[Rfam]
Nucleotides: 080
Base pairs, nucleotide, nucleotide: 017068018067019066020065021064022063023062026059027058028057029056030055031054032053033052034051035050
Number, partner (000 for none) and nucleotide at each position: 001000g002000a003000g004000a005000g006000u007000g008000a009000g010000c011000c012000a013000g014000u015000u016000a017068a018067g019066a020065c021064u022063u023062g024000c025000a026059g027058u028057g029056a030055u031054g032053u033052u034051u035050a036000g037000g038000u039000u040000u041000a042000u043000u044000g045000a046000c047000c048000c049000a050035u051034g052033a053032a054031c055030a056029u057028c058027a059026c060000u061000u062023u063022a064021a065020g066019u067018c068017u069000g070000u071000g072000c073000u074000g075000g076000c077000u078000c079000u080000g

Rfam assigns this 80-nucleotide RNA sequence from Triplophysa rosa to the family "mir-499 microRNA precursor family". The base pairs follow the family's consensus structure, which was predicted with RNAalifold. NCBI's taxonomy places the organism under Eukaryota, Bilateria, Chordata, Clupeocephala, Triplophysa. On this family, see Murchison et al., Genome Res 2008: "Conservation of small RNA pathways in platypus". Gene Ontology terms of the family: RISC complex and miRNA-mediated post-transcriptional gene silencing. Rfam 15.1 lists 710 matches to the family in 635 species.